[Rfam]
RNA sequence: UUCGACAAAGGCAAACCGUUCGAGAGGACGGGACGCAAAGCUACGGGUCCGUGAGUGAACCGUGUGAGUUAUGAGUAACGAGUUUACUUGUGAUGAACAGGCCAAGCUUCAGGAAAGCCGGGCUGCCGAGG
Numbered sequence: 001u002u003c004g005a006c007a008a009a010g011g012c013a014a015a016c017c018g019u020u021c022g023a024g025a026g027g028a029c030g031g032g033a034c035g036c037a038a039a040g041c042u043a044c045g046g047g048u049c050c051g052u053g054a055g056u057g058a059a060c061c062g063u064g065u066g067a068g069u070u071a072u073g074a075g076u077a078a079c080g081a082g083u084u085u086a087c088u089u090g091u092g093a094u095g096a097a098c099a100g101g102c103c104a105a106g107c108u109u110c111a112g113g114a115a116a117g118c119c120g121g122g123c124u125g126c127c128g129a130g131g
Stems, first nucleotide, its partner, number of pairs: 001131001003128002011036002016031006034117001039124004044120003048114002

This 131-nucleotide RNA sequence from Novipirellula herctigrandis belongs to the Rfam family "c-di-GMP-I-GGC riboswitch aptamer". It scores 65 bits against the family's covariance model. On this family, see Smith et al., Nat Struct Mol Biol 2009: "Structural basis of ligand binding by a c-di-GMP riboswitch".